[Rfam]
RNA sequence: AAGUCUGACAUGUGUGCGAGUCAACAGGUGAGUAAACCUGUAAGGUGUAAGGAAGCUGAUUGGUUGGAUCCCCCUGGGGGGUGCACCGCCGAUCGACCUAGAUCUUCUGAGAAGGGUUCGAGUGUGAGCAUAUAUGUCGGGUCCCGAAAGAUGGUGAACUAUGCCUUAGCGGGACGAAGCCAAAAGAAACUCUGGUGGAGGCCCACCGCGAUACUGACGUGCAAAUCUUUCUUCUGACUUGGGUAUAGGGGCGAAAGACUAAUCGAACCAUCUAGUAGCUGGUU
Numbered sequence: 001a002a003g004u005c006u007g008a009c010a011u012g013u014g015u016g017c018g019a020g021u022c023a024a025c026a027g028g029u030g031a032g033u034a035a036a037c038c039u040g041u042a043a044g045g046u047g048u049a050a051g052g053a054a055g056c057u058g059a060u061u062g063g064u065u066g067g068a069u070c071c072c073c074c075u076g077g078g079g080g081g082u083g084c085a086c087c088g089c090c091g092a093u094c095g096a097c098c099u100a101g102a103u104c105u106u107c108u109g110a111g112a113a114g115g116g117u118u119c120g121a122g123u124g125u126g127a128g129c130a131u132a133u134a135u136g137u138c139g140g141g142u143c144c145c146g147a148a149a150g151a152u153g154g155u156g157a158a159c160u161a162u163g164c165c166u167u168a169g170c171g172g173g174a175c176g177a178a179g180c181c182a183a184a185a186g187a188a189a190c191u192c193u194g195g196u197g198g199a200g201g202c203c204c205a206c207c208g209c210g211a212u213a214c215u216g217a218c219g220u221g222c223a224a225a226u227c228u229u230u231c232u233u234c235u236g237a238c239u240u241g242g243g244u245a246u247a248g249g250g251g252c253g254a255a256a257g258a259c260u261a262a263u264c265g266a267a268c269c270a271u272c273u274a275g276u277a278g279c280u281g282g283u284u
Stems, first nucleotide, its partner, number of pairs: 005140013020046003025040005050057002062090003066086001070081002092123002094120003097116003103110002143282002146279001150272006159248008168239002170236001172204002175201001179196004184191001208233001210231002213229001216227002250260002
RNA: Eukaryotic large subunit ribosomal RNA, nucleotides 667 to 950